[Rfam]
RNA sequence: AGCUGGUUUUUCCUUGGGUAAUGAGUCCAAAAAUAGCGUUCAUUACUGGGGGUAAAUCAGCUCU
Dot-bracket structure: (((.(((((((((...(((((((.................))))))).)))).))))).)))..
This 64-nucleotide RNA sequence from Caenorhabditis brenneri belongs to the Rfam family "mir-35_2 microRNA precursor family". Its Rfam clan is "mir-36 clan". NCBI's taxonomy places the organism under Eukaryota, Nematoda, Chromadorea, Rhabditidae, Caenorhabditis.